RNA sequence: AAUUGCAAAGUGCCUAAUCCGAAAGGAGCGGAGGAACCAAUUUUUGGGGUGAAUCUGAUAUUAUUUACAAAUAACAGUAGGGUAUCCUCUACCCGAAUCCGACAGCUAACUUCGUAGGCAUGUGAAAAGAGGGACA
Numbered sequence: 001a002a003u004u005g006c007a008a009a010g011u012g013c014c015u016a017a018u019c020c021g022a023a024a025g026g027a028g029c030g031g032a033g034g035a036a037c038c039a040a041u042u043u044u045u046g047g048g049g050u051g052a053a054u055c056u057g058a059u060a061u062u063a064u065u066u067a068c069a070a071a072u073a074a075c076a077g078u079a080g081g082g083u084a085u086c087c088u089c090u091a092c093c094c095g096a097a098u099c100c101g102a103c104a105g106c107u108a109a110c111u112u113c114g115u116a117g118g119c120a121u122g123u124g125a126a127a128a129g130a131g132g133g134a135c136a
Stems, first nucleotide, its partner, number of pairs: 011120004018027003028115006038046002047100003055077003080094004
RNA: c-di-AMP riboswitch aptamer (ydaO/yuaA leader)